The record is a 133-nucleotide RNA sequence from Pterocles gutturalis, which matches "Small nucleolar RNA SNORA17" in Rfam. A search with the family's covariance model found it, with a score of 67 bits. Rfam 15.1 lists 5,784 matches to the family in 673 species. Gene Ontology terms of the family: RNA processing and nucleolus. The literature on the family includes a 1997 paper in J Mol Biol by Ofengand and Bakin, "Mapping to nucleotide resolution of pseudouridine residues in large subunit ribosomal RNAs from representative eukaryotes, prokaryotes, archaebacteria, mitochondria and chloroplasts".
RNA sequence: CAUGCCCCACUCGUGUUGCAGGCAUGGCUGUCGUGCCAUGUUUGUGUCAUUAGGUGGCAGAGAGGAAGAGGCUACGUCUUUGCUAGUGCUCUGAGACCUGUGGGCACUGGAGGAUGAUGAGUAACCUGACAAU
Numbered sequence: 001c002a003u004g005c006c007c008c009a010c011u012c013g014u015g016u017u018g019c020a021g022g023c024a025u026g027g028c029u030g031u032c033g034u035g036c037c038a039u040g041u042u043u044g045u046g047u048c049a050u051u052a053g054g055u056g057g058c059a060g061a062g063a064g065g066a067a068g069a070g071g072c073u074a075c076g077u078c079u080u081u082g083c084u085a086g087u088g089c090u091c092u093g094a095g096a097c098c099u100g101u102g103g104g105c106a107c108u109g110g111a112g113g114a115u116g117a118u119g120a121g122u123a124a125c126c127u128g129a130c131a132a133u
Stems, first nucleotide, its partner, number of pairs: 003059004007054002009051001013047002018045004023040006069127003073123003080117003083110009